Shown here is a 79-nucleotide RNA sequence from Camelus dromedarius, a member of the family "Small nucleolar RNA U2-19".
RNA sequence: GAUUAUUGAUGAAAAUAGCCAGGUCUGAACAUCAGAUGACCUUCUAGUUUCCCUGAUGCAUGAUCUCUGUAGUCUGAGA
Numbered sequence: 001g002a003u004u005a006u007u008g009a010u011g012a013a014a015a016u017a018g019c020c021a022g023g024u025c026u027g028a029a030c031a032u033c034a035g036a037u038g039a040c041c042u043u044c045u046a047g048u049u050u051c052c053c054u055g056a057u058g059c060a061u062g063a064u065c066u067c068u069g070u071a072g073u074c075u076g077a078g079a
Stems, first nucleotide, its partner, number of pairs: 030058004038049003

The source organism's lineage runs through Eukaryota, Deuterostomia, Amniota, Artiodactyla and Camelus. A search with the family's covariance model found it, with a score of 72 bits. By type it is a C/D-box small nucleolar RNA. On this family, see Tycowski et al., Curr Biol 2004: "Guide RNAs with 5' Caps and Novel Box C/D snoRNA-like Domains for Modification of snRNAs in Metazoa".